[Rfam]
RNA sequence: CACCUUGGUUACUCACUCAACCUGGGUGUGAUGUAUGUUUUGAUGCCAUCACAACCUUCUUGAGUGAGCGAUUGGGUGG
Number, nucleotide and partner (000 for none) at each position: 001c000002a000003c000004c000005u000006u000007g000008g000009u070010u000011a000012c068013u067014c066015a065016c064017u063018c062019a061020a060021c000022c000023u000024g056025g055026g000027u053028g052029u051030g050031a049032u048033g047034u000035a000036u000037g000038u000039u000040u000041u000042g000043a000044u000045g000046c000047c033048a032049u031050c030051a029052c028053a027054a000055c025056c024057u000058u000059c000060u020061u019062g018063a017064g016065u015066g014067a013068g012069c000070g009071a000072u000073u000074g000075g000076g000077u000078g000079g000
Rfam assigns this 79-nucleotide RNA from Phaedon cochleariae to the family "mir-67 microRNA precursor family". The match comes from Rfam's covariance-model search (66 bits). A reference for the family is Liu et al. (2010), "MicroRNAs of Bombyx mori identified by Solexa sequencing", BMC Genomics. The organism belongs to Phaedon, within Eukaryota. The family has 33 seed sequences and 196 matches in Rfam 15.1. Pairs were carried over by alignment from the consensus structure, which was predicted with RNAalifold.